A member of the RNA family "Vault RNA" from Scyliorhinus torazame, 89 nucleotides long. By type it is a non-coding RNA gene. This family of RNAs are found as part of the enigmatic vault ribonucleoprotein complex. Taxonomically the source falls in Scyliorhinus (Eukaryota, Chordata, Selachii, Galeoidea).
RNA sequence: GUGUCAGCUUUAGCUCAGUGGCUACUUCACAGCAUCAACUUAUUUACAGGUUGGAAUCUGUCUCACAGUUGGCGCUAACUGGCGAUUUU
Numbered sequence: 001g002u003g004u005c006a007g008c009u010u011u012a013g014c015u016c017a018g019u020g021g022c023u024a025c026u027u028c029a030c031a032g033c034a035u036c037a038a039c040u041u042a043u044u045u046a047c048a049g050g051u052u053g054g055a056a057u058c059u060g061u062c063u064c065a066c067a068g069u070u071g072g073c074g075c076u077a078a079c080u081g082g083c084g085a086u087u088u089u
Base pairs, nucleotide, nucleotide: 002084003083004082005081006080007079013073014072015071018069019068021066026056027055028054